This 71-nucleotide RNA sequence belongs to the Rfam family "narK RNA". The sequence is in the family's curated seed alignment. The family's RNA type in Rfam is cis-regulatory element.
[Rfam]
RNA sequence: GGCGCAGCUCUUGCUAAGCAUUCACCACAGGUAACCAACGGCGGUUGCCCCUUCCACGACAAAGACGUCGC
Dot-bracket structure: .............................(((((((......)))))))......................